The record is a 76-nucleotide RNA from Mojavia pulchra, which matches "Cyano-1 RNA" in Rfam. It is annotated as a small RNA. The base pairs follow the family's consensus structure, which is taken from published work. Taxonomically the source falls in Mojavia pulchra (Bacteria, Bacillati, Cyanobacteriota, Mojavia).
[Rfam]
Nucleotides: 076
Stems, first nucleotide, its partner, number of pairs: 015074001027073005033067002038062003041058003
Number, partner (000 for none) and nucleotide at each position: 001000u002000u003000g004000u005000g006000u007000g008000u009000g010000a011000g012000g013000a014000g015074c016000a017000a018000g019000u020000u021000a022000a023000a024000a025000a026000c027073a028072a029071a030070a031069a032000a033067c034066g035000c036000c037000u038062g039061g040060g041058g042057u043056g044000g045000a046000a047000a048000c049000a050000c051000g052000g053000c054000a055000a056043c057042a058041c059000u060040c061039c062038u063000g064000g065000g066034c067033g068000u069031u070030u071029u072028u073027u074015g075000u076000u